[Rfam]
This 101-nucleotide sequence from Dreissena polymorpha belongs to the Rfam family "Z30 small nucleolar RNA".
Rfam links the family to the GO terms nucleolus and RNA processing.

RNA sequence: GUGCAGUGAUGACAGAUAAGGACUGUGAUCUGGUAUUUUCUGGGUUCUGCUCGGAAUCUGACCAGAAAAUGACCACCAAGAUUAAUCUUCUCUCUGAGCAC
Numbered sequence: 001g002u003g004c005a006g007u008g009a010u011g012a013c014a015g016a017u018a019a020g021g022a023c024u025g026u027g028a029u030c031u032g033g034u035a036u037u038u039u040c041u042g043g044g045u046u047c048u049g050c051u052c053g054g055a056a057u058c059u060g061a062c063c064a065g066a067a068a069a070u071g072a073c074c075a076c077c078a079a080g081a082u083u084a085a086u087c088u089u090c091u092c093u094c095u096g097a098g099c100a101c
Stems, first nucleotide, its partner, number of pairs: 003099002038056004

Pairs were carried over by alignment from the consensus structure, which was predicted with PFOLD. By type it is a C/D-box small nucleolar RNA. The source organism's lineage runs through Eukaryota, Lophotrochozoa, Autobranchia, Dreissenidae and Dreissena. Rfam 15.1 lists 802 matches to the family in 647 species. A reference for the family is Galardi et al. (2002), "Purified box C/D snoRNPs are able to reproduce site-specific 2'-O-methylation of target RNA in vitro", Mol Cell Biol.